[Rfam]
RNA sequence: AUAAUGUUUCUUGCUCAAAUGAGUAUUCCAAAAGGGCAUGCAAAAGCAAAUUAACAGUAUCACACUUAGUAUAUUUCUAUUUUAAAUGCACUUUUUUUUUAUUUUUUUGGUGAAUAAAAGUUUGUGAUUCUGCUUUUGAGAUGCUCAUUUGGGCAAGCAAUAUUAA
Numbered sequence: 001a002u003a004a005u006g007u008u009u010c011u012u013g014c015u016c017a018a019a020u021g022a023g024u025a026u027u028c029c030a031a032a033a034g035g036g037c038a039u040g041c042a043a044a045a046g047c048a049a050a051u052u053a054a055c056a057g058u059a060u061c062a063c064a065c066u067u068a069g070u071a072u073a074u075u076u077c078u079a080u081u082u083u084a085a086a087u088g089c090a091c092u093u094u095u096u097u098u099u100u101a102u103u104u105u106u107u108u109g110g111u112g113a114a115u116a117a118a119a120g121u122u123u124g125u126g127a128u129u130c131u132g133c134u135u136u137u138g139a140g141a142u143g144c145u146c147a148u149u150u151g152g153g154c155a156a157g158c159a160a161u162a163u164u165a166a
Stems, first nucleotide, its partner, number of pairs: 004163005010157018029138006
RNA: MIR828 microRNA precursor family
Organism: Handroanthus impetiginosus